This 364-nucleotide RNA from Neisseria sp. oral taxon 020 belongs to the Rfam family "Bacterial RNase P class A". A search with the family's covariance model found it, with a score of 287 bits. Ribonuclease P (RNase P) is a ubiquitous endoribonuclease, found in archaea, bacteria and eukarya as well as chloroplasts and mitochondria. Its best characterised activity is the generation of mature 5'-ends of tRNAs by cleaving the 5'-leader elements of precursor-tRNAs. Cellular RNase Ps are ribonucleoproteins. RNA from bacterial RNase Ps retains its catalytic activity in the absence of the protein subunit, i.e. it is a ribozyme.

[Rfam]
RNA sequence: CGGGUCGGACAGACAGUCGCCGCGUAUCGCGUAAGGCAUACGGGGAGGAAAGUCCGGGCUGCACAGGGCAGGAUGCCGGCUAACGGCCGGGCGCGGCAACGCGACGGAAAGUGGAGCAGAAAGCAAAACCGCCGACGGCCGCUUGAAAAAGCGGCACGGGCAAGGGUGAAAAGGUGCGGUAAGAGCGCACCGUGCCCCUGGCAACAGGGCGCAGCAGGCCAAACCCCAUCCGCAGCAAGACCAAACAGAACGCAUUGACGCGGCCCGCCGAGCGUUCGGGUAGGUUGCUGGAGCGUAUCGGCAACGGUGCGCCUAGAGGAAUGACUGUCCGCGACAGAACCCGGCUUACCGUCCGACCCGCGUG
Dot-bracket structure: ((((((((((.(((((((.((.(((((..........))))).))....[[[.[[[[[((((...[[[[.((((((((((.....)))))(((((....)))).)((...((((..............(((((..(((((((((....))))))).)))))..)).......((((((.......))))))(((((((((....))))).))).)...))..)))))))))))))...((((.....((((((......((.]]]]))...)))))).....))))......((((((((....))))))))..........)))))))..........]]]]]]]]...))))))))))....
Numbered sequence: 001c002g003g004g005u006c007g008g009a010c011a012g013a014c015a016g017u018c019g020c021c022g023c024g025u026a027u028c029g030c031g032u033a034a035g036g037c038a039u040a041c042g043g044g045g046a047g048g049a050a051a052g053u054c055c056g057g058g059c060u061g062c063a064c065a066g067g068g069c070a071g072g073a074u075g076c077c078g079g080c081u082a083a084c085g086g087c088c089g090g091g092c093g094c095g096g097c098a099a100c101g102c103g104a105c106g107g108a109a110a111g112u113g114g115a116g117c118a119g120a121a122a123g124c125a126a127a128a129c130c131g132c133c134g135a136c137g138g139c140c141g142c143u144u145g146a147a148a149a150a151g152c153g154g155c156a157c158g159g160g161c162a163a164g165g166g167u168g169a170a171a172a173g174g175u176g177c178g179g180u181a182a183g184a185g186c187g188c189a190c191c192g193u194g195c196c197c198c199u200g201g202c203a204a205c206a207g208g209g210c211g212c213a214g215c216a217g218g219c220c221a222a223a224c225c226c227c228a229u230c231c232g233c234a235g236c237a238a239g240a241c242c243a244a245a246c247a248g249a250a251c252g253c254a255u256u257g258a259c260g261c262g263g264c265c266c267g268c269c270g271a272g273c274g275u276u277c278g279g280g281u282a283g284g285u286u287g288c289u290g291g292a293g294c295g296u297a298u299c300g301g302c303a304a305c306g307g308u309g310c311g312c313c314u315a316g317a318g319g320a321a322u323g324a325c326u327g328u329c330c331g332c333g334a335c336a337g338a339a340c341c342c343g344g345c346u347u348a349c350c351g352u353c354c355g356a357c358c359c360g361c362g363u364g
Stems, first nucleotide, its partner, number of pairs: 001360010012329007020045002023042005050347003054344005059235004066266004071231005076090005091105001092103004106226002111224002113220002129165002131161003136158002138155007173191006192215001193213003196209005239286004248277006260268002293312008